[Rfam]
RNA: Small nucleolar RNA SNORA42/SNORA80 family
Organism: Panthera leo
RNA sequence: GCACGGUGAUUGAUGGCGGGCCCUUGACCGUGGGCCUCUCAGAGUGGACCCGUGCCAGAGGAAGUGCAGCCCCGAACCAUUGCCCAGCCUCCCGAUCGGUGGGCUGUGAGCACUGAAGGGGGCUGGACAGGG
Numbered sequence: 001g002c003a004c005g006g007u008g009a010u011u012g013a014u015g016g017c018g019g020g021c022c023c024u025u026g027a028c029c030g031u032g033g034g035c036c037u038c039u040c041a042g043a044g045u046g047g048a049c050c051c052g053u054g055c056c057a058g059a060g061g062a063a064g065u066g067c068a069g070c071c072c073c074g075a076a077c078c079a080u081u082g083c084c085c086a087g088c089c090u091c092c093c094g095a096u097c098g099g100u101g102g103g104c105u106g107u108g109a110g111c112a113c114u115g116a117a118g119g120g121g122g123c124u125g126g127a128c129a130g131g132g
Stems, first nucleotide, its partner, number of pairs: 001055004005050003011044001014041003018037003021033002067125006078115002083110001085106006